RNA: Clostridiales-2 RNA
Organism: Oceanirhabdus seepicola
RNA sequence: AAAAUGCCGGGGUUGUAGGGGAAAUAUUCCCCUGCCGGUUUAAGGAGGGUGCUCAGCAACAUCAGUUGCGUCGAAGGGAAC
Numbered sequence: 001a002a003a004a005u006g007c008c009g010g011g012g013u014u015g016u017a018g019g020g021g022a023a024a025u026a027u028u029c030c031c032c033u034g035c036c037g038g039u040u041u042a043a044g045g046a047g048g049g050u051g052c053u054c055a056g057c058a059a060c061a062u063c064a065g066u067u068g069c070g071u072c073g074a075a076g077g078g079a080a081c
Stems, first nucleotide, its partner, number of pairs: 015035008056069005